[Rfam]
RNA: Small nucleolar RNA SNORA77
RNA sequence: GCAGACUCACUCUGUACUGAACUGCAGCCUUCAGUUCAGGUGCUUUUCUGUCUGCGAGAGCAGUAGUUCACACGAGUGACAACUGCCUUCUUUGCUGUAGAAGGCUGUUACAGCUGUUGUUGAGACAUUCUU
Numbered sequence: 001g002c003a004g005a006c007u008c009a010c011u012c013u014g015u016a017c018u019g020a021a022c023u024g025c026a027g028c029c030u031u032c033a034g035u036u037c038a039g040g041u042g043c044u045u046u047u048c049u050g051u052c053u054g055c056g057a058g059a060g061c062a063g064u065a066g067u068u069c070a071c072a073c074g075a076g077u078g079a080c081a082a083c084u085g086c087c088u089u090c091u092u093u094g095c096u097g098u099a100g101a102a103g104g105c106u107g108u109u110a111c112a113g114c115u116g117u118u119g120u121u122g123a124g125a126c127a128u129u130c131u132u
Stems, first nucleotide, its partner, number of pairs: 001055006014043004018038003022034003067123002070120002072117002076114002081109001085105004